[Rfam]
RNA sequence: CACUGCGCGGUCUCUAAUUCGCUUGGUGCAGGUCGGGAACCGAUCUUCCCGCGCGUAAUGGAUGCCGUUGGCGGCGGCGAAUUUGGAUCCCGCCUUGCAUCAACUGAAUCGGAGGCCACGGUGAAG
Numbered sequence: 001c002a003c004u005g006c007g008c009g010g011u012c013u014c015u016a017a018u019u020c021g022c023u024u025g026g027u028g029c030a031g032g033u034c035g036g037g038a039a040c041c042g043a044u045c046u047u048c049c050c051g052c053g054c055g056u057a058a059u060g061g062a063u064g065c066c067g068u069u070g071g072c073g074g075c076g077g078c079g080a081a082u083u084u085g086g087a088u089c090c091c092g093c094c095u096u097g098c099a100u101c102a103a104c105u106g107a108a109u110c111g112g113a114g115g116c117c118a119c120g121g122u123g124a125a126g
Base pairs, nucleotide, nucleotide: 013113014112017109018108019107020106023103024102025101026100027099028098029097030096031095032094034092035091036090037089038088040086041085042084043083
Dot-bracket structure: ............((..((((..((((((((((.(((((.((((.......................................)))).))))).))))))))))..))))..)).............